[Rfam]
Nucleotides: 073
Base pairs, nucleotide, nucleotide: 001072002071003070004069005068006067007066010025011024012023027043028042029041030040031039049065050064051063052062053061
Number, partner (000 for none) and nucleotide at each position: 001072c002071g003070g004069c005068a006067g007066u008000u009000g010025g011024c012023c013000g014000a015000g016000c017000g018000g019000u020000u021000u022000a023012g024011g025010c026000a027043a028042c029041g030040a031039a032000c033000u034000c035000a036000u037000a038000a039031u040030u041029c042028g043027u044000c045000c046000a047000a048000g049065g050064c051063a052062g053061g054000u055000u056000c057000a058000a059000c060000u061053c062052c063051u064050g065049c066007a067006c068005u069004g070003c071002c072001g073000a
Rfam assigns this 73-nucleotide sequence from Microcoleus sp. FACHB-831 to the family "tRNA". A search with the family's covariance model found it, with a score of 56 bits. A reference for the family is Lowe and Eddy (1997), "tRNAscan-SE: a program for improved detection of transfer RNA genes in genomic sequence", Nucleic Acids Res. It is annotated as a transfer RNA. Taxonomically the source falls in Microcoleus (Bacteria, Bacillati, Cyanobacteriota, Microcoleaceae).